This 248-nucleotide sequence from Neobacillus massiliamazoniensis belongs to the Rfam family "BsrG". Gene Ontology terms of the family: autolysis and toxin activity. Rfam's curators write: bsrE, bsrG and bsrH pair through intermolecular interactions with antisense sRNAs. They form type I toxin/antitoxin system that includes an mRNA encoding for a short, toxic peptide (bsrE, bsrG and bsrH) and an antitoxin that is comprised of an antisense RNA. bsrG encodes a 39-amino-acid toxin, and the 180 nucleotide antisense sRNA called SR4 acts as the antitoxin (they overlap by 123 nucleotides). SR4 interaction with the 3'UTR of bsrG RNA promotes bsrG degradation and inhibits its translation. BsrG interferes with cell envelope biosynthesis, causes membrane invaginations and delocalisation of the cell wall synthesis and initiates autolysis. bsrE RNA encodes 30 amino-acid toxin peptide. Rfam 15.1 lists 614 matches to the family in 343 species. By type it is a small RNA. It scores 110 bits against the family's covariance model. Pairs were carried over by alignment from the consensus structure, which was predicted with WAR.
RNA sequence: GCAAUAGAAUAAGAUUUUUCAAGGGUGGUUGGCACACUCCCAAACAGAAAGGGGGUGAUGCUGUAUGACAGUUUUUCAAGCUUUGAUGCUAGCAAAUCUUUUGCCAGUCUAGUCAUUGCAAUUCUGUCAUUUCAUAACCAUAAAAAAUAAUCCACCCUUGAGUUAUAGGCUCAGGUGGAUUAUUCCCGUCUAGCCGCCCCCUUUGAGGGACCGCCUAUUGCUGGACUGGACAUGUUACUGCAUGCUAA
Numbered sequence: 001g002c003a004a005u006a007g008a009a010u011a012a013g014a015u016u017u018u019u020c021a022a023g024g025g026u027g028g029u030u031g032g033c034a035c036a037c038u039c040c041c042a043a044a045c046a047g048a049a050a051g052g053g054g055g056u057g058a059u060g061c062u063g064u065a066u067g068a069c070a071g072u073u074u075u076u077c078a079a080g081c082u083u084u085g086a087u088g089c090u091a092g093c094a095a096a097u098c099u100u101u102u103g104c105c106a107g108u109c110u111a112g113u114c115a116u117u118g119c120a121a122u123u124c125u126g127u128c129a130u131u132u133c134a135u136a137a138c139c140a141u142a143a144a145a146a147a148u149a150a151u152c153c154a155c156c157c158u159u160g161a162g163u164u165a166u167a168g169g170c171u172c173a174g175g176u177g178g179a180u181u182a183u184u185c186c187c188g189u190c191u192a193g194c195c196g197c198c199c200c201c202u203u204u205g206a207g208g209g210a211c212c213g214c215c216u217a218u219u220g221c222u223g224g225a226c227u228g229g230a231c232a233u234g235u236u237a238c239u240g241c242a243u244g245c246u247a248a
Stems, first nucleotide, its partner, number of pairs: 001221005007215001013195001015193002018162008027152004035057002038055004067128005080093003102120003166182001200209002227248001229246001231244005